[Rfam]
RNA sequence: UUUGUUACCCUCACAAUGGCACUGGCUUGUCUGUUGCCAUAUUUUAGUAAGUGCUAUUUAUUGGGGUAGUUUCA
Numbered sequence: 001u002u003u004g005u006u007a008c009c010c011u012c013a014c015a016a017u018g019g020c021a022c023u024g025g026c027u028u029g030u031c032u033g034u035u036g037c038c039a040u041a042u043u044u045u046a047g048u049a050a051g052u053g054c055u056a057u058u059u060a061u062u063g064g065g066g067u068a069g070u071u072u073c074a
Stems, first nucleotide, its partner, number of pairs: 004070008013061001015059002018055006025048003

miR-430 microRNA precursor family: a 74-nucleotide RNA sequence from Cyprinus carpio. Pairs were carried over by alignment from the consensus structure, which was predicted with RNAalifold. Rfam 15.1 lists 24,817 matches to the family in 105 species. The source organism's lineage runs through Eukaryota, Otophysi, Cypriniformes, Cyprinidae and Cyprinus carpio. A reference for the family is Giraldez et al. (2005), "MicroRNAs regulate brain morphogenesis in zebrafish", Science.